The family of this 67-nucleotide RNA sequence from Synechococcus sp. RS9916 is "Cyano-1 RNA".
The family has 265 seed sequences and 283 matches in Rfam 15.1.
RNA sequence: UUUCUUGUGAGGAGUUGAACUCCUCUGUGGAGUGGAAACAAGGCAACACGUCCACACGAGUUCACGA
Numbered sequence: 001u002u003u004c005u006u007g008u009g010a011g012g013a014g015u016u017g018a019a020c021u022c023c024u025c026u027g028u029g030g031a032g033u034g035g036a037a038a039c040a041a042g043g044c045a046a047c048a049c050g051u052c053c054a055c056a057c058g059a060g061u062u063c064a065c066g067a
Base pairs, nucleotide, nucleotide: 018062019061020060021059022058027055028054029053030052031051032049033048034047
Rfam classes the family as a small RNA. The source organism's lineage runs through Bacteria, Cyanobacteriota, Cyanophyceae, Synechococcaceae and Synechococcus. The family's consensus secondary structure is taken from published work.